[Rfam]
RNA: Plastid-clpP 5UTR RNA
Organism: Triticum urartu
RNA sequence: AAUUCUGUUCAUAAGAAGAAAGAGAAGUAGAUCUAUUCUACACUCGAUAAGUGCCAAUAUGCAAUGGGU
Numbered sequence: 001a002a003u004u005c006u007g008u009u010c011a012u013a014a015g016a017a018g019a020a021a022g023a024g025a026a027g028u029a030g031a032u033c034u035a036u037u038c039u040a041c042a043c044u045c046g047a048u049a050a051g052u053g054c055c056a057a058u059a060u061g062c063a064a065u066g067g068g069u
Stems, first nucleotide, its partner, number of pairs: 003022002006019001008017003043068003051060003